[Rfam]
RNA sequence: AAGCAGGAUAAGUUACAGUGCAGCUUGUUCAGUGCUGUUCUGUCGUUCCCCCUGCACACAUCAACUAGUUUCCUACUAUCCCUGUCUGUCUGCAUCCCACUGCUGACAGGGACGCUUGGUCUCAGACAC
Numbered sequence: 001a002a003g004c005a006g007g008a009u010a011a012g013u014u015a016c017a018g019u020g021c022a023g024c025u026u027g028u029u030c031a032g033u034g035c036u037g038u039u040c041u042g043u044c045g046u047u048c049c050c051c052c053u054g055c056a057c058a059c060a061u062c063a064a065c066u067a068g069u070u071u072c073c074u075a076c077u078a079u080c081c082c083u084g085u086c087u088g089u090c091u092g093c094a095u096c097c098c099a100c101u102g103c104u105g106a107c108a109g110g111g112a113c114g115c116u117u118g119g120u121c122u123c124a125g126a127c128a129c
Base pairs, nucleotide, nucleotide: 003055004054005053006052007051015043016042017041018040020038021037022036023035024034081110082109083108084107086105088103089102
Shown here is a 129-nucleotide sequence from Coregonus sp. 'balchen', a member of the family "Small nucleolar RNA SNORA63". A reference for the family is Mishra and Eliceiri (1997), "Three small nucleolar RNAs that are involved in ribosomal RNA precursor processing", Proc Natl Acad Sci U S A. It scores 98 bits against the family's covariance model. Rfam's curators write: E3 belongs to the H/ACA class of snoRNAs and is involved in the processing of eukaryotic pre-rRNA and has regions of complementarity to 18S rRNA. E3 is encoded in introns in the gene for protein synthesis initiation factor 4AII. Pairs were carried over by alignment from the consensus structure, which was predicted with PFOLD.